Shown here is a 109-nucleotide RNA sequence from Jaculus jaculus, a member of the family "Small nucleolar RNA SNORD23". For this family Rfam cites "RNomics: an experimental approach that identifies 201 candidates for novel, small, non-messenger RNAs in mouse" (Huttenhofer et al., EMBO J, 2001). Pairs were carried over by alignment from the consensus structure. Lineage of the source: Eukaryota > Vertebrata > Teleostomi > Glires > Jaculus. It is annotated as a C/D-box small nucleolar RNA. The family has 15 seed sequences and 153 matches in Rfam 15.1.

RNA sequence: UGCCCAGUGAUGACACCAUCCUUGCUCCCAGUGCCUCCAGGAGCUGUGAGUGACACUAUGGCUGUCCAUGGGCCAGGCCAGGUGGGCCACUGCCCGGGGGCUGAGGGCA
Numbered sequence: 001u002g003c004c005c006a007g008u009g010a011u012g013a014c015a016c017c018a019u020c021c022u023u024g025c026u027c028c029c030a031g032u033g034c035c036u037c038c039a040g041g042a043g044c045u046g047u048g049a050g051u052g053a054c055a056c057u058a059u060g061g062c063u064g065u066c067c068a069u070g071g072g073c074c075a076g077g078c079c080a081g082g083u084g085g086g087c088c089a090c091u092g093c094c095c096g097g098g099g100g101c102u103g104a105g106g107g108c109a
Stems, first nucleotide, its partner, number of pairs: 001109005